The family of this 406-nucleotide RNA sequence from Talaromyces marneffei is "RNase MRP". Gene Ontology terms of the family: ribonuclease MRP activity, rRNA processing and ribonuclease MRP complex. RNase MRP is an enzymatically active ribonucleoprotein with two distinct roles in eukaryotes. In mitochondria it plays a direct role in the initiation of mitochondrial DNA replication. A search with the family's covariance model found it, with a score of 103 bits. The source organism's lineage runs through Eukaryota, Opisthokonta, Eurotiomycetes, Talaromyces sect. Talaromyces and Talaromyces marneffei.
[Rfam]
RNA sequence: UCCUCGCUCAAAGAAUCGCAUUCAAAGCUCACACACAAGAGCGUAUACCCAUACCUCUUCCUCCAAGCUUUGGGAGAAAGUCCCCGGACACCCUGCCCAAUUCGUUUUACGUAUUGGUUUUUUGUUCUCCCAUGAGAAUGUCUAGUCAGGCAAUGCGGAAACGCGCCGCCAUAAAAGCAAUUUGAUAGCGGCUUACGCUCCUAUUCUUCCUUUGGAUCACGAUCUCUGCGACACUCUCCUGUCAGGGAAAGUGGACACAAUGGCGUUGACGGGGUUUGAAGAGAAGAGGAUGUCUCUCGGGAUAUCAGUAUUGGGGUUGCUCUUCGUCGUGGUUCGAUAGUCAUGCGAUUGCUUGUCUGAUUUGGUUCAGGCGGGUAACUCAAUGGGGCUCAUUCUUGAGGCGAGG
Numbered sequence: 001u002c003c004u005c006g007c008u009c010a011a012a013g014a015a016u017c018g019c020a021u022u023c024a025a026a027g028c029u030c031a032c033a034c035a036c037a038a039g040a041g042c043g044u045a046u047a048c049c050c051a052u053a054c055c056u057c058u059u060c061c062u063c064c065a066a067g068c069u070u071u072g073g074g075a076g077a078a079a080g081u082c083c084c085c086g087g088a089c090a091c092c093c094u095g096c097c098c099a100a101u102u103c104g105u106u107u108u109a110c111g112u113a114u115u116g117g118u119u120u121u122u123u124g125u126u127c128u129c130c131c132a133u134g135a136g137a138a139u140g141u142c143u144a145g146u147c148a149g150g151c152a153a154u155g156c157g158g159a160a161a162c163g164c165g166c167c168g169c170c171a172u173a174a175a176a177g178c179a180a181u182u183u184g185a186u187a188g189c190g191g192c193u194u195a196c197g198c199u200c201c202u203a204u205u206c207u208u209c210c211u212u213u214g215g216a217u218c219a220c221g222a223u224c225u226c227u228g229c230g231a232c233a234c235u236c237u238c239c240u241g242u243c244a245g246g247g248a249a250a251g252u253g254g255a256c257a258c259a260a261u262g263g264c265g266u267u268g269a270c271g272g273g274g275u276u277u278g279a280a281g282a283g284a285a286g287a288g289g290a291u292g293u294c295u296c297u298c299g300g301g302a303u304a305u306c307a308g309u310a311u312u313g314g315g316g317u318u319g320c321u322c323u324u325c326g327u328c329g330u331g332g333u334u335c336g337a338u339a340g341u342c343a344u345g346c347g348a349u350u351g352c353u354u355g356u357c358u359g360a361u362u363u364g365g366u367u368c369a370g371g372c373g374g375g376u377a378a379c380u381c382a383a384u385g386g387g388g389c390u391c392a393u394u395c396u397u398g399a400g401g402c403g404a405g406g
Stems, first nucleotide, its partner, number of pairs: 002406006008399004014350006022074001023072006038056002079390002082388004250321003255317002258314001260312001265309003277304002286296004352375009